Shown here is a 126-nucleotide RNA from Brassica napus, a member of the family "MIR9563 microRNA precursor family". The base pairs follow the family's consensus structure, which was predicted with RNAalifold. NCBI's taxonomy places the organism under Eukaryota, Streptophyta, Brassicales, Brassicaceae, Brassica.
[Rfam]
RNA sequence: UGAAUAUAAGAACUUGUCUCUUAACUUUUAACUAAAAAAAGAUAAGAAUCAGUUUUUAAAUAUCUUAUUUAAGAGCCGGUUCUUAGCUUUUUUAGUUAGAAAUUAAGAGACGGAUUCUUAUAUUCC
Numbered sequence: 001u002g003a004a005u006a007u008a009a010g011a012a013c014u015u016g017u018c019u020c021u022u023a024a025c026u027u028u029u030a031a032c033u034a035a036a037a038a039a040a041g042a043u044a045a046g047a048a049u050c051a052g053u054u055u056u057u058a059a060a061u062a063u064c065u066u067a068u069u070u071a072a073g074a075g076c077c078g079g080u081u082c083u084u085a086g087c088u089u090u091u092u093u094a095g096u097u098a099g100a101a102a103u104u105a106a107g108a109g110a111c112g113g114a115u116u117c118u119u120a121u122a123u124u125c126c
Base pairs, nucleotide, nucleotide: 002125003124004123005122006121007120008119009118010117011116012115014113015112016111017110018109019108020107021106022105023104024103026101027100028099029098030097031096032095033094034093035092036091037090038089039088043085044084045083046082047081048080